The family of this 118-nucleotide RNA from Musa balbisiana is "Plastid-psbA-1 3UTR RNA". About the family: Plastid psbA-1 is a non-coding RNA (ncRNA) present in plastids. It was identified in inverted repeat sequences in the 3 prime untranslate region (3UTR) of photosystem II quinone-binding protein (psbA). By type it is a cis-regulatory element. On this family, see Richter et al., Plant Commun 2023: "Retrograde signaling in plants: A critical review focusing on the GUN pathway and beyond". Its Rfam clan is "Plastid-psbA 3UTR RNA clan".
RNA sequence: UCGAAGUUUCAUCUACAAAUGGAUAAGAUUUUUGUCUUAGUGUAGACGAAAUAGUUUUUGAUGAAACAAAGUAGCAAUCCCCCAUGUCUUGCUUAGCACAGCUGGGUAUUGCUACUUG
Numbered sequence: 001u002c003g004a005a006g007u008u009u010c011a012u013c014u015a016c017a018a019a020u021g022g023a024u025a026a027g028a029u030u031u032u033u034g035u036c037u038u039a040g041u042g043u044a045g046a047c048g049a050a051a052u053a054g055u056u057u058u059u060g061a062u063g064a065a066a067c068a069a070a071g072u073a074g075c076a077a078u079c080c081c082c083c084a085u086g087u088c089u090u091g092c093u094u095a096g097c098a099c100a101g102c103u104g105g106g107u108a109u110u111g112c113u114a115c116u117u118g
Stems, first nucleotide, its partner, number of pairs: 008023005069117010080106001082104001088101002